Shown here is an 84-nucleotide RNA from Limnohabitans sp. Rim28, a member of the family "SucA RNA motif". Taxonomically the source falls in Limnohabitans (Bacteria, Pseudomonadati, Pseudomonadota, Betaproteobacteria).
[Rfam]
RNA sequence: UCGCAUCCGCCAACCGGUUCAGCCGUGUCGCGGAAGGUAACUCUUAACCAACUAAUGUUUCCCUGAGGGGAACGGAGGUCAGCG
Numbered sequence: 001u002c003g004c005a006u007c008c009g010c011c012a013a014c015c016g017g018u019u020c021a022g023c024c025g026u027g028u029c030g031c032g033g034a035a036g037g038u039a040a041c042u043c044u045u046a047a048c049c050a051a052c053u054a055a056u057g058u059u060u061c062c063c064u065g066a067g068g069g070g071a072a073c074g075g076a077g078g079u080c081a082g083c084g
Stems, first nucleotide, its partner, number of pairs: 002084003006034005015025004036049003051079003057073007
A reference for the family is Weinberg et al. (2007), "Identification of 22 candidate structured RNAs in bacteria using the CMfinder comparative genomics pipeline", Nucleic Acids Res.